[Rfam]
RNA sequence: UUCGGCUUCGCGACGACUCUUUCGUCGCCCUCUGCAUUCGUCGCCGACGCACUUCUGCCCCUUAUCGCACAACGACCAGUUCGUAUUCUGCUGCGCGGC
Numbered sequence: 001u002u003c004g005g006c007u008u009c010g011c012g013a014c015g016a017c018u019c020u021u022u023c024g025u026c027g028c029c030c031u032c033u034g035c036a037u038u039c040g041u042c043g044c045c046g047a048c049g050c051a052c053u054u055c056u057g058c059c060c061c062u063u064a065u066c067g068c069a070c071a072a073c074g075a076c077c078a079g080u081u082c083g084u085a086u087u088c089u090g091c092u093g094c095g096c097g098g099c
Stems, first nucleotide, its partner, number of pairs: 010028006038098003042095003046091001072084004
RNA: Pseudomon-Rho RNA